Cyano-1 RNA: a 77-nucleotide RNA sequence from Nostoc sp. PCC 7107. By type it is a small RNA. Taxonomically the source falls in Nostoc (Bacteria, Cyanophyceae, Nostocales, Nostocaceae). The family's consensus secondary structure is taken from published work. It scores 53 bits against the family's covariance model. Rfam 15.1 lists 283 matches to the family in 194 species.
RNA sequence: UUGUGUGUGAGGAGCAAGUUGAAAAGAAAGAGCGCAUGGGGUGGAAACACGGCAACACUCCCAAGCGCUUUUUCAUU
Numbered sequence: 001u002u003g004u005g006u007g008u009g010a011g012g013a014g015c016a017a018g019u020u021g022a023a024a025a026g027a028a029a030g031a032g033c034g035c036a037u038g039g040g041g042u043g044g045a046a047a048c049a050c051g052g053c054a055a056c057a058c059u060c061c062c063a064a065g066c067g068c069u070u071u072u073u074c075a076u077u
Stems, first nucleotide, its partner, number of pairs: 026074005033067002038062003041058003